Source information: MIR6152 microRNA precursor family: a 96-nucleotide sequence from Nicotiana tabacum. Pairs were carried over by alignment from the consensus structure, which was predicted with RNAalifold. Gene Ontology terms of the family: miRNA-mediated post-transcriptional gene silencing and RISC complex.
[Rfam]
RNA sequence: UGGACAGAUUACCCUAUUCGAUUGUAUUCAUGAUGUGAAAUAGGGGAUUACACUUUUUUAAAGCGGAAAAUGUAUCAAUUAACAUAAUAGACUACU
Numbered sequence: 001u002g003g004a005c006a007g008a009u010u011a012c013c014c015u016a017u018u019c020g021a022u023u024g025u026a027u028u029c030a031u032g033a034u035g036u037g038a039a040a041u042a043g044g045g046g047a048u049u050a051c052a053c054u055u056u057u058u059u060a061a062a063g064c065g066g067a068a069a070a071u072g073u074a075u076c077a078a079u080u081a082a083c084a085u086a087a088u089a090g091a092c093u094a095c096u
Stems, first nucleotide, its partner, number of pairs: 002095001004093001009090003015084001017082002020080002023077002026075002029072003034065003037058002040056001042054002